RNA sequence: UCCAGUGGUAGUCAGCUCUCCAGAGCAGUACUGUGCCUGUGAUAGUGUUACACUGCUGGGAGAUAAACAUCAGUCAUGCCUUCUGGCUGCUGUUGUCACCGUUCUGGAGACAGCUGGUGCCAAAGGAAAUGGCAUUGUGCUUCCCUGAGAGCGCACUAAAGAUUUGCUUUCCCUCUUUAGUGCUAGUCUGGAAGCAUACACA
Numbered sequence: 001u002c003c004a005g006u007g008g009u010a011g012u013c014a015g016c017u018c019u020c021c022a023g024a025g026c027a028g029u030a031c032u033g034u035g036c037c038u039g040u041g042a043u044a045g046u047g048u049u050a051c052a053c054u055g056c057u058g059g060g061a062g063a064u065a066a067a068c069a070u071c072a073g074u075c076a077u078g079c080c081u082u083c084u085g086g087c088u089g090c091u092g093u094u095g096u097c098a099c100c101g102u103u104c105u106g107g108a109g110a111c112a113g114c115u116g117g118u119g120c121c122a123a124a125g126g127a128a129a130u131g132g133c134a135u136u137g138u139g140c141u142u143c144c145c146u147g148a149g150a151g152c153g154c155a156c157u158a159a160a161g162a163u164u165u166g167c168u169u170u171c172c173c174u175c176u177u178u179a180g181u182g183c184u185a186g187u188c189u190g191g192a193a194g195c196a197u198a199c200a201c202a
Stems, first nucleotide, its partner, number of pairs: 001060009011051002015046003019042002021039003069135002073133004082126003085121003090116001092114003097109001099107002137197008153183003157179006
Dot-bracket structure: (((((((((.((..(((.(((((.............))).)).)))...)))))))))))........((..((((.....((((((..(.(((..(.((.....)).)..))).)..)))..)))...)))))).((((((((........(((.((((((...........)))))).)))......)))))))).....
RNA: Small nucleolar RNA SNORA74